RNA sequence: UUCCCGCGCACCGGGGUCAUGGUGCACCUCCCUGUUGGACUGCCCGGGCCCCGGCCCGGGCUUUUUU
Numbered sequence: 001u002u003c004c005c006g007c008g009c010a011c012c013g014g015g016g017u018c019a020u021g022g023u024g025c026a027c028c029u030c031c032c033u034g035u036u037g038g039a040c041u042g043c044c045c046g047g048g049c050c051c052c053g054g055c056c057c058g059g060g061c062u063u064u065u066u067u
Base pairs, nucleotide, nucleotide: 008025009024011022012021042061043060044059045058046057047056048055049054
RNA: Singlet oxygen resistance RNA X
Organism: Mangrovicoccus algicola